[Rfam]
RNA sequence: ACAGACUCACUCUGCACCUGGCUGCAGCCCCAGUCGGGUAUUUCUUUUUCAUCUGCCAGAGAAAUAUUGCUGUGGCCACCUGACCUGCUGAGGGUGAUGCAGCUUCCCAGGGGA
Numbered sequence: 001a002c003a004g005a006c007u008c009a010c011u012c013u014g015c016a017c018c019u020g021g022c023u024g025c026a027g028c029c030c031c032a033g034u035c036g037g038g039u040a041u042u043u044c045u046u047u048u049u050c051a052u053c054u055g056c057c058a059g060a061g062a063a064a065u066a067u068u069g070c071u072g073u074g075g076c077c078a079c080c081u082g083a084c085c086u087g088c089u090g091a092g093g094g095u096g097a098u099g100c101a102g103c104u105u106c107c108c109a110g111g112g113g114a
Stems, first nucleotide, its partner, number of pairs: 002055004014041001016039005022033003068112001069103006077096005
Source information: Rfam assigns this 114-nucleotide RNA from Cebus imitator to the family "Small nucleolar RNA SNORA77". NCBI's taxonomy places the organism under Eukaryota, Vertebrata, Gnathostomata, Eutheria, Cebus. For this family Rfam cites "A computational screen for mammalian pseudouridylation guide H/ACA RNAs" (Schattner et al., RNA, 2006). It is annotated as an H/ACA-box small nucleolar RNA.